RNA: MIR1509 microRNA precursor family
RNA sequence: UGAUUUACUGCAUCUUUUUAAUCAAGGAAAUCACGGUUGAGUGUGAAGGAGAGAAAGUGGCUUCAGAUUUCCGGGUUUUCCUUCUCCACUGUGUUUCCUUGGUUAAAGAUAUGUGCUGGAUCA
Numbered sequence: 001u002g003a004u005u006u007a008c009u010g011c012a013u014c015u016u017u018u019u020a021a022u023c024a025a026g027g028a029a030a031u032c033a034c035g036g037u038u039g040a041g042u043g044u045g046a047a048g049g050a051g052a053g054a055a056a057g058u059g060g061c062u063u064c065a066g067a068u069u070u071c072c073g074g075g076u077u078u079u080c081c082u083u084c085u086c087c088a089c090u091g092u093g094u095u096u097c098c099u100u101g102g103u104u105a106a107a108g109a110u111a112u113g114u115g116c117u118g119g120a121u122c123a
Base pairs, nucleotide, nucleotide: 001123002122003121004120005119006118007117011113012112013111016108017107018106019105020104021103022102023101024100025099026098027097028096029095030094032093033092034091035090036089037088039086040085041084